[Rfam]
RNA sequence: AUACGGAAACAGGGGUGCUGCCCGUGUGCCGACGCCGAGGGGCGUGCGGUACGGGCGGCUGAGAAUGACCCUUUGCACCCGAUACGGAUAAUACCGGCGUGGGGAGUUUCGAGGUUGGAUGC
Numbered sequence: 001a002u003a004c005g006g007a008a009a010c011a012g013g014g015g016u017g018c019u020g021c022c023c024g025u026g027u028g029c030c031g032a033c034g035c036c037g038a039g040g041g042g043c044g045u046g047c048g049g050u051a052c053g054g055g056c057g058g059c060u061g062a063g064a065a066u067g068a069c070c071c072u073u074u075g076c077a078c079c080c081g082a083u084a085c086g087g088a089u090a091a092u093a094c095c096g097g098c099g100u101g102g103g104g105a106g107u108u109u110c111g112a113g114g115u116u117g118g119a120u121g122c
Stems, first nucleotide, its partner, number of pairs: 006110005011072004017059011078103004085096003